[Rfam]
RNA sequence: UUGGACAUAUAUACUAGUCCUUUCCCCAUGGAGAUAUGGUGUGCGAUGGUUGCAAACAGCAGCUUCCUUGGUAGUGUAUGGAGCCUGUUGCCUAUAUGGGUUGCUCUGAAGGACCUUGGAGGCAAUU
Numbered sequence: 001u002u003g004g005a006c007a008u009a010u011a012u013a014c015u016a017g018u019c020c021u022u023u024c025c026c027c028a029u030g031g032a033g034a035u036a037u038g039g040u041g042u043g044c045g046a047u048g049g050u051u052g053c054a055a056a057c058a059g060c061a062g063c064u065u066c067c068u069u070g071g072u073a074g075u076g077u078a079u080g081g082a083g084c085c086u087g088u089u090g091c092c093u094a095u096a097u098g099g100g101u102u103g104c105u106c107u108g109a110a111g112g113a114c115c116u117u118g119g120a121g122g123c124a125a126u127u
Stems, first nucleotide, its partner, number of pairs: 013040004020033003070115003082102005
Small nucleolar RNA SNORA70: a 127-nucleotide RNA from Mus musculus. Rfam's curators write: snoRNA U70 seems to be exclusive to mammals and is a member of the H/ACA class of snoRNA which contain H (ANANNA) and ACA box motifs. It is annotated as an H/ACA-box small nucleolar RNA. The literature on the family includes a 2000 paper in IUBMB Life by Charette and Gray, "Pseudouridine in RNA: what, where, how, and why". The match comes from Rfam's covariance-model search (86 bits). Gene Ontology terms of the family: RNA processing and nucleolus. The organism belongs to Mus, within Eukaryota.